The family of this 69-nucleotide RNA from Carassius auratus is "Small nucleolar RNA SNORD19".
Rfam 15.1 lists 1,431 matches to the family in 609 species.
The pairing is the family consensus, mapped onto this sequence.
Rfam links the family to the GO terms nucleolus and RNA processing.
The family's RNA type in Rfam is C/D-box small nucleolar RNA.
For this family Rfam cites "RNomics: an experimental approach that identifies 201 candidates for novel, small, non-messenger RNAs in mouse" (Huttenhofer et al., EMBO J, 2001).
RNA sequence: GAGGCAAGAUGAAAAGAAAAAAUACAAUCUAAAUUUUUCUAAAGACAGUAAGUUCCCCUCAGACUUACC
Numbered sequence: 001g002a003g004g005c006a007a008g009a010u011g012a013a014a015a016g017a018a019a020a021a022a023u024a025c026a027a028u029c030u031a032a033a034u035u036u037u038u039c040u041a042a043a044g045a046c047a048g049u050a051a052g053u054u055c056c057c058c059u060c061a062g063a064c065u066u067a068c069c
Stems, first nucleotide, its partner, number of pairs: 001060004
Dot-bracket structure: ((((....................................................)))).........